[Rfam]
RNA sequence: AAUGAAUGAUGACAAGAUGUUUCGGUCCCAGAUGAUGUGGAAUGAUUCCAUUUCGCCAAUUUCUGACAUU
Numbered sequence: 001a002a003u004g005a006a007u008g009a010u011g012a013c014a015a016g017a018u019g020u021u022u023c024g025g026u027c028c029c030a031g032a033u034g035a036u037g038u039g040g041a042a043u044g045a046u047u048c049c050a051u052u053u054c055g056c057c058a059a060u061u062u063c064u065g066a067c068a069u070u
Stems, first nucleotide, its partner, number of pairs: 001070004

Small nucleolar RNA SNORD73: a 70-nucleotide sequence from Hypocryptadius cinnamomeus. A search with the family's covariance model found it, with a score of 70 bits. Rfam classes the family as a C/D-box small nucleolar RNA. Its family is annotated with nucleolus and RNA processing in the Gene Ontology.